Notes
The family of this 169-nucleotide RNA sequence from Scyliorhinus torazame is "Small nucleolar RNA SNORA23". From the family's description: The members of this family belong to the H/ACA class of snoRNAs which are thought to guide the sites of modification of uridines to pseudouridines. This family includes human snoRNA ACA23 (SNORA23) and mouse snoMBI-1. ACA23 is predicted to guide the pseudouridylation of residue U3737 and U4331 of 28S rRNA. It scores 45 bits against the family's covariance model.
[Rfam]
RNA sequence: UGCGCACGGUUUUCCGUCAGUCCGUGUCUGGCACCGAGUCCGGGAGGCGUUCUGCCGCCCGCGCUUGGCGUUCGCACAGCCCGAUCCCAGGGCCGUAGAUCAAACCCAUUCGAGGUCAUAGUACCGGCCAGCGAGGUCCGCUGGGCGGCCGCCGAGCUCUCGAACAAGC
Numbered sequence: 001u002g003c004g005c006a007c008g009g010u011u012u013u014c015c016g017u018c019a020g021u022c023c024g025u026g027u028c029u030g031g032c033a034c035c036g037a038g039u040c041c042g043g044g045a046g047g048c049g050u051u052c053u054g055c056c057g058c059c060c061g062c063g064c065u066u067g068g069c070g071u072u073c074g075c076a077c078a079g080c081c082c083g084a085u086c087c088c089a090g091g092g093c094c095g096u097a098g099a100u101c102a103a104a105c106c107c108a109u110u111c112g113a114g115g116u117c118a119u120a121g122u123a124c125c126g127g128c129c130a131g132c133g134a135g136g137u138c139c140g141c142u143g144g145g146c147g148g149c150c151g152c153c154g155a156g157c158u159c160u161c162g163a164a165c166a167a168g169c
Stems, first nucleotide, its partner, number of pairs: 008088002025078003029074003032070001034068004039063001041061003046056003111162005124148003128144006

Gene Ontology terms of the family: RNA processing and nucleolus.